[Rfam]
The family of this 50-nucleotide RNA sequence from Polerovirus SAYV is "Exoribonuclease-resistant RNA (xrRNA) plant-infecting virus (class 3)". Exoribonuclease-resistant RNA (xrRNA) plant-infecting virus (class 3) is a ncRNA that was reported in Plant viruses. For this family Rfam cites "The crystal structure of a Polerovirus exoribonuclease-resistant RNA shows how diverse sequences are integrated into a conserved fold" (Steckelberg et al., RNA, 2020). The family's RNA type in Rfam is cis-regulatory element. Pairs were carried over by alignment from the consensus structure, which is taken from published work.
RNA sequence: UGAACCAGCGAACAAUUCAGUUGCGAGAUUCGAGGUUUCAGUCUGAAUCA
Numbered sequence: 001u002g003a004a005c006c007a008g009c010g011a012a013c014a015a016u017u018c019a020g021u022u023g024c025g026a027g028a029u030u031c032g033a034g035g036u037u038u039c040a041g042u043c044u045g046a047a048u049c050a
Stems, first nucleotide, its partner, number of pairs: 002038002009032002012030001013027001016047005